About this RNA: This 101-nucleotide sequence from Desulfitobacterium hafniense belongs to the Rfam family "SAM riboswitch aptamer (S box leader)". The match comes from Rfam's covariance-model search (82 bits). The base pairs follow the family's consensus structure, which is taken from published work.

RNA sequence: CUCUUAUCCAGAGUAGGUGGAGGGACUGGCCCGAUGAAACCCGGCAACCGGCAUGAAAAUGCACGGUGCUAAAUCCUGCAGGAAAUACUGGGAGAUGAGAG
Numbered sequence: 001c002u003c004u005u006a007u008c009c010a011g012a013g014u015a016g017g018u019g020g021a022g023g024g025a026c027u028g029g030c031c032c033g034a035u036g037a038a039a040c041c042c043g044g045c046a047a048c049c050g051g052c053a054u055g056a057a058a059a060u061g062c063a064c065g066g067u068g069c070u071a072a073a074u075c076c077u078g079c080a081g082g083a084a085a086u087a088c089u090g091g092g093a094g095a096u097g098a099g100a101g
Stems, first nucleotide, its partner, number of pairs: 001101008013042001016041003022032003026078001028076002043070004048066002051062004074093001079090003